[Rfam]
RNA sequence: GUUGGCUAUGGAGAUAUGGCCCCGGUCACCGUGGGUGGCAAGAUCGUGGGCUCCCUGUGUGCCAUCGCAGGCGUGCUGACCAUUUCUCUGCCGGUGCCUGUCAUUGUCUCCAAU
Numbered sequence: 001g002u003u004g005g006c007u008a009u010g011g012a013g014a015u016a017u018g019g020c021c022c023c024g025g026u027c028a029c030c031g032u033g034g035g036u037g038g039c040a041a042g043a044u045c046g047u048g049g050g051c052u053c054c055c056u057g058u059g060u061g062c063c064a065u066c067g068c069a070g071g072c073g074u075g076c077u078g079a080c081c082a083u084u085u086c087u088c089u090g091c092c093g094g095u096g097c098c099u100g101u102c103a104u105u106g107u108c109u110c111c112a113a114u
Stems, first nucleotide, its partner, number of pairs: 001114002004111002008107004013102004018097001021094001037077004049063003

Shown here is a 114-nucleotide sequence from Chrysochloris asiatica, a member of the family "Potassium channel RNA editing signal". Rfam classes the family as a cis-regulatory element. The base pairs follow the family's consensus structure, which is taken from published work.